[Rfam]
RNA sequence: ACGACAGUAUCUUCAGAACUGUACGUAGUAUCUCACAGUAGAUCGUUUCAUUUAGAGUCUGCUUUGAUCCUUAGCGACAAAGACAGAGAU
Number, nucleotide and partner (000 for none) at each position: 001a026002c025003g024004a022005c021006a020007g019008u018009a000010u017011c016012u000013u000014c000015a000016g011017a010018a008019c007020u006021g005022u004023a000024c003025g002026u001027a000028g000029u000030a000031u000032c000033u000034c000035a000036c000037a000038g000039u000040a000041g000042a000043u000044c000045g000046u000047u000048u000049c000050a000051u000052u000053u000054a000055g000056a000057g000058u000059c086060u085061g084062c082063u081064u080065u079066g078067a000068u077069c076070c000071u000072u000073a000074g000075c000076g069077a068078c066079a065080a064081a063082g062083a000084c061085a060086g059087a000088g000089a000090u000

The record is a 90-nucleotide RNA from [Clostridium] cellulosi, which matches "pan motif" in Rfam. It is annotated as a cis-regulatory element. The base pairs follow the family's consensus structure, which is taken from published work.